[Rfam]
RNA sequence: UGACCCGGUCGUUCCCGACGCCAAAGACCAAAGAACCGGGGAAAGAACCCAACCCGCCCCUACCGUCCCCGGCGAUCACCCGCCGGAGUGAAUAUGCCGAACUCGGCUGGCGUGGAGGGUCAGUUGUACGGCAGCGUCUGCGGCGACAAGUCCAGACAUACUUCGGCCCUCGCCGGGACUGCCAUCCCACUGCGAGGGCCUGAUCAUCAAGGAAGAGAGAACCUUCCCC
Numbered sequence: 001u002g003a004c005c006c007g008g009u010c011g012u013u014c015c016c017g018a019c020g021c022c023a024a025a026g027a028c029c030a031a032a033g034a035a036c037c038g039g040g041g042a043a044a045g046a047a048c049c050c051a052a053c054c055c056g057c058c059c060c061u062a063c064c065g066u067c068c069c070c071g072g073c074g075a076u077c078a079c080c081c082g083c084c085g086g087a088g089u090g091a092a093u094a095u096g097c098c099g100a101a102c103u104c105g106g107c108u109g110g111c112g113u114g115g116a117g118g119g120u121c122a123g124u125u126g127u128a129c130g131g132c133a134g135c136g137u138c139u140g141c142g143g144c145g146a147c148a149a150g151u152c153c154a155g156a157c158a159u160a161c162u163u164c165g166g167c168c169c170u171c172g173c174c175g176g177g178a179c180u181g182c183c184a185u186c187c188c189a190c191u192g193c194g195a196g197g198g199c200c201u202g203a204u205c206a207u208c209a210a211g212g213a214a215g216a217g218a219g220a221a222c223c224u225u226c227c228c229c
Base pairs, nucleotide, nucleotide: 001206002205008067010065011064076091077090078089079088081086106135107134108133109132165200166199167198168197169196171194172193173192175188176187177186178185211227212226213225214224215223
RNA: Streptomyces sRNA 4677